[Rfam]
RNA sequence: GGAUCAAUGAUGAUACCAACUGUCUGAGGAAGUUGAAGGACUCAGAACAAAUGACUAUGUGAGGUCU
Dot-bracket structure: (((((.........................................................)))))
Numbered sequence: 001g002g003a004u005c006a007a008u009g010a011u012g013a014u015a016c017c018a019a020c021u022g023u024c025u026g027a028g029g030a031a032g033u034u035g036a037a038g039g040a041c042u043c044a045g046a047a048c049a050a051a052u053g054a055c056u057a058u059g060u061g062a063g064g065u066c067u
Stems, first nucleotide, its partner, number of pairs: 001067005
Record summary
Shown here is a 67-nucleotide RNA sequence from Nannospalax galili, a member of the family "Small nucleolar RNA SNORD109A". From the family's description: Humans have two copies of the SNORD109 gene, SNORD109A and SNORD109B. Its Rfam clan is "SNORD74 clan". For this family Rfam cites "The IC-SNURF-SNRPN transcript serves as a host for multiple small nucleolar RNA species and as an antisense RNA for UBE3A" (Runte et al., Hum Mol Genet, 2001). By type it is a C/D-box small nucleolar RNA. Gene Ontology terms of the family: nucleolus and RNA processing. The source organism's lineage runs through Eukaryota, Amniota, Mammalia, Eutheria and Nannospalax. The base pairs follow the family's consensus structure, which was predicted with WAR.